[Rfam]
RNA: glmS glucosamine-6-phosphate activated ribozyme aptamer
Organism: Aminithiophilus ramosus
Nucleotides: 160
Stems, first nucleotide, its partner, number of pairs: 020039008049080005058069004081101006105150007119135002122133004
Number, partner (000 for none) and nucleotide at each position: 001000u002000g003000c004000c005000a006000g007000a008000a009000g010000g011000a012000a013000g014000c015000g016000c017000c018000a019000g020039a021038a022037c023036u024035g025034g026033c027032c028000u029000g030000a031000g032027g033026g034025c035024c036023a037022g038021u039020u040000g041000a042000c043000g044000a045000g046000g047000a048000c049080g050079g051078a052077g053076g054000a055000g056000u057000a058069u059068c060067g061066a062000u063000u064000u065000u066061u067060c068059g069058g070000c071000g072000g073000a074000u075000g076053c077052c078051u079050c080049c081101g082100g083099g084098g085097u086096c087000c088000c089000g090000a091000a092000g093000g094000a095000a096086g097085g098084c099083c100082c101081u102000c103000a104000a105150g106149g107148c108147g109146a110145c111144c112000u113000a114000c115000a116000a117000a118000a119135c120134g121000a122133c123132u124131c125130g126000g127000c128000g129000a130125c131124g132123g133122g134120c135119g136000g137000a138000c139000a140000a141000a142000g143000g144111g145110g146109u147108c148107g149106u150105c151000g152000u153000c154000c155000u156000u157000u158000u159000u160000c